[Rfam]
RNA sequence: CUAUCUCUCUUUGGAGAGAGACAGGAUUUGGCUUGCCACAAUCCAGAGAGAGGGG
Number, nucleotide and partner (000 for none) at each position: 001c000002u000003a000004u021005c020006u019007c018008u017009c016010u015011u000012u000013g000014g000015a010016g009017a008018g007019a006020g005021a004022c000023a000024g044025g043026a042027u041028u040029u038030g037031g036032c000033u000034u000035g000036c031037c030038a029039c000040a028041a027042u026043c025044c024045a000046g000047a000048g000049a000050g000051a000052g000053g000054g000055g000
RNA: Whalefall-1 RNA